[Rfam]
RNA sequence: GGGCCAGCCUCGUGGCCGAGUGGGUUCUUCGGUUUCCGCGCCUCAGGAACCAGUCGACCGAGAACAGGUGGCCUGACGUGACCCCACCGGCGCUGUCUGGCCUUUUC
Numbered sequence: 001g002g003g004c005c006a007g008c009c010u011c012g013u014g015g016c017c018g019a020g021u022g023g024g025u026u027c028u029u030c031g032g033u034u035u036c037c038g039c040g041c042c043u044c045a046g047g048a049a050c051c052a053g054u055c056g057a058c059c060g061a062g063a064a065c066a067g068g069u070g071g072c073c074u075g076a077c078g079u080g081a082c083c084c085c086a087c088c089g090g091c092g093c094u095g096u097c098u099g100g101c102c103u104u105u106u107c
Stems, first nucleotide, its partner, number of pairs: 002102006015091004020087004029076004
RNA: Vault RNA